[Rfam]
RNA sequence: GCCCUGUGUGGUUGAUUCGCCGCUGUGCCCGUGCGGCGCUCCGGUGCGAGGACGGGCCCACAGUGAGUCUGUGAUUGAUGCAGGGAGUCUGCGAGCCCUGAGCAGCCUCCACAGCCCGCUCACAGGCACAGCC
Numbered sequence: 001g002c003c004c005u006g007u008g009u010g011g012u013u014g015a016u017u018c019g020c021c022g023c024u025g026u027g028c029c030c031g032u033g034c035g036g037c038g039c040u041c042c043g044g045u046g047c048g049a050g051g052a053c054g055g056g057c058c059c060a061c062a063g064u065g066a067g068u069c070u071g072u073g074a075u076u077g078a079u080g081c082a083g084g085g086a087g088u089c090u091g092c093g094a095g096c097c098c099u100g101a102g103c104a105g106c107c108u109c110c111a112c113a114g115c116c117c118g119c120u121c122a123c124a125g126g127c128a129c130a131g132c133c
Stems, first nucleotide, its partner, number of pairs: 001057004007048004012043001014041002019037005069125001071123004076118001080115002084110002087107001089105004